[Rfam]
RNA sequence: GGGGCCGUAGUCCAACGGCAGGAGACGGCAGCUUUAGGUGCUGUACAGUGCGGGUUCGAAUCCCGCCGGCCCCA
Numbered sequence: 001g002g003g004g005c006c007g008u009a010g011u012c013c014a015a016c017g018g019c020a021g022g023a024g025a026c027g028g029c030a031g032c033u034u035u036a037g038g039u040g041c042u043g044u045a046c047a048g049u050g051c052g053g054g055u056u057c058g059a060a061u062c063c064c065g066c067c068g069g070c071c072c073c074a
Stems, first nucleotide, its partner, number of pairs: 001073007010026003028044005050066005
A member of the RNA family "tRNA" from Nocardiopsis eucommiae, 74 nucleotides long. By type it is a transfer RNA.